[Rfam]
RNA sequence: AUUUAAUAUCGGUAGGUGAGGCUACCAUAGGGAUACGGAUUACUGCCGCAAAAUAGUGGAGACACUAUGAGAUGGUCAACAGUCUAGGUCAACAAGGCGUAGAAUAAUGUAAUUUCAUUGCCCUAUGGAGUUAAAGCUUGAACGAAGACAAUAAAU
Numbered sequence: 001a002u003u004u005a006a007u008a009u010c011g012g013u014a015g016g017u018g019a020g021g022c023u024a025c026c027a028u029a030g031g032g033a034u035a036c037g038g039a040u041u042a043c044u045g046c047c048g049c050a051a052a053a054u055a056g057u058g059g060a061g062a063c064a065c066u067a068u069g070a071g072a073u074g075g076u077c078a079a080c081a082g083u084c085u086a087g088g089u090c091a092a093c094a095a096g097g098c099g100u101a102g103a104a105u106a107a108u109g110u111a112a113u114u115u116c117a118u119u120g121c122c123c124u125a126u127g128g129a130g131u132u133a134a135a136g137c138u139u140g141a142a143c144g145a146a147g148a149c150a151a152u153a154a155a156u
Stems, first nucleotide, its partner, number of pairs: 005152001007150001009148002011143001013095001015138003020132003025128008039113005045076004055066004083103003088098003
M-box riboswitch aptamer (ykoK leader): a 156-nucleotide sequence from Erysipelothrix inopinata. M-box riboswitch, also know as ykoK leader is described as a metaloregulatory RNA that sense divalent metals and function as a genetic control element of genes related to divalent metal transport in bacteria. It was first reported upstream of the B.subtilis ykoK gene and genes with related functions in other bacteria. On this family, see Barrick et al., Proc Natl Acad Sci U S A 2004: "New RNA motifs suggest an expanded scope for riboswitches in bacterial genetic control". Pairs were carried over by alignment from the consensus structure. NCBI's taxonomy places the organism under Bacteria, Bacillati, Bacillota, Erysipelotrichales, Erysipelothrix.